[Rfam]
RNA: Selenocysteine insertion sequence 1
Organism: Cynoglossus semilaevis
RNA sequence: UGCAGUUUAUGACAGUCUGGUCCUAAAGCAGUCUCUGCUGGACCUGACCUGAUUUUUUUUUCUGCA
Numbered sequence: 001u002g003c004a005g006u007u008u009a010u011g012a013c014a015g016u017c018u019g020g021u022c023c024u025a026a027a028g029c030a031g032u033c034u035c036u037g038c039u040g041g042a043c044c045u046g047a048c049c050u051g052a053u054u055u056u057u058u059u060u061u062c063u064g065c066a
Base pairs, nucleotide, nucleotide: 001066002065003064004063005062015048016047017046019044020043021042022041023040029037030036031035